[Rfam]
This 141-nucleotide RNA sequence from Sapajus apella belongs to the Rfam family "U4 spliceosomal RNA". By type it is a spliceosomal small nuclear RNA. A search with the family's covariance model found it, with a score of 84 bits.

RNA sequence: AGCUUUGCGCAGUGGCAGUAUCCUAGCCAAUGAGUUCUAUCUGAGAUGAGAUUAUUGCUCAUUGAAAACUUUCCCCAGUACCCCGCCGUGAUGACAUGCAAUAGAGUCGGCACUGACAAUUUUGGACAGUCUCUAGGGAGA
Number, nucleotide and partner (000 for none) at each position: 001a000002g000003c000004u000005u000006u000007g000008c000009g000010c000011a000012g000013u000014g000015g000016c000017a000018g000019u000020a052021u051022c050023c000024u048025a000026g047027c000028c045029a000030a000031u000032g000033a000034g042035u000036u000037c000038u000039a000040u000041c000042u034043g000044a000045g028046a000047u026048g024049a000050g022051a021052u020053u000054a000055u000056u000057g000058c000059u000060c000061a000062u000063u000064g000065a000066a000067a000068a000069c000070u000071u000072u000073c000074c000075c000076c000077a000078g000079u000080a000081c000082c000083c000084c000085g117086c000087c115088g113089u112090g111091a000092u109093g108094a107095c106096a000097u104098g000099c000100a000101a000102u000103a000104g097105a000106g095107u094108c093109g092110g000111c090112a089113c088114u000115g087116a000117c085118a000119a000120u000121u000122u000123u000124g000125g000126a000127c000128a000129g000130u141131c140132u139133c138134u000135a000136g000137g000138g133139a132140g131141a130
About the family: U4 small nuclear RNA (U4 snRNA) is a component of the major U2-dependent spliceosome.